[Rfam]
RNA sequence: GUUGCGGCGGCCUCUAAUUCGCUUGGUGCAGGUCGGGAACUUUCUUUGUCCACGGCGUCGCUAUACUCUGAAAUCGUACAUAAUACGAGUACGUGUGAUUAUACGUACGAAGCAUACGGUUUCGAAAUUCAUAUCGCUGUUUUUGGCGAAAAUCAGGUUCCCGCCUUGCAUCAACUGAAUCGGAGGCCGCGGUGAAU
Numbered sequence: 001g002u003u004g005c006g007g008c009g010g011c012c013u014c015u016a017a018u019u020c021g022c023u024u025g026g027u028g029c030a031g032g033u034c035g036g037g038a039a040c041u042u043u044c045u046u047u048g049u050c051c052a053c054g055g056c057g058u059c060g061c062u063a064u065a066c067u068c069u070g071a072a073a074u075c076g077u078a079c080a081u082a083a084u085a086c087g088a089g090u091a092c093g094u095g096u097g098a099u100u101a102u103a104c105g106u107a108c109g110a111a112g113c114a115u116a117c118g119g120u121u122u123c124g125a126a127a128u129u130c131a132u133a134u135c136g137c138u139g140u141u142u143u144u145g146g147c148g149a150a151a152a153u154c155a156g157g158u159u160c161c162c163g164c165c166u167u168g169c170a171u172c173a174a175c176u177g178a179a180u181c182g183g184a185g186g187c188c189g190c191g192g193u194g195a196a197u
Stems, first nucleotide, its partner, number of pairs: 013184002017180004023174010034163005040157002
MIR168 microRNA precursor family: a 197-nucleotide sequence from Sesamum indicum. Pairs were carried over by alignment from the consensus structure, which was predicted with WAR.